Shown here is a 61-nucleotide sequence from filamentous cyanobacterium CCP2, a member of the family "Plastid-psbN 5UTR RNA". The base pairs follow the family's consensus structure, which was predicted with LocARNA. It scores 54 bits against the family's covariance model. It is annotated as a cis-regulatory element. A reference for the family is Richter et al. (2023), "Retrograde signaling in plants: A critical review focusing on the GUN pathway and beyond", Plant Commun. The source organism's lineage runs through Bacteria, Bacillati and Cyanobacteriota.
RNA sequence: GAAGACUGCCAUUAGAGGCGUAGUUCCCCAACCAGGAGCCACCUUACCGUAUUCAGAGUUU
Numbered sequence: 001g002a003a004g005a006c007u008g009c010c011a012u013u014a015g016a017g018g019c020g021u022a023g024u025u026c027c028c029c030a031a032c033c034a035g036g037a038g039c040c041a042c043c044u045u046a047c048c049g050u051a052u053u054c055a056g057a058g059u060u061u
Base pairs, nucleotide, nucleotide: 017045018044020042021041023039024038025037026036027035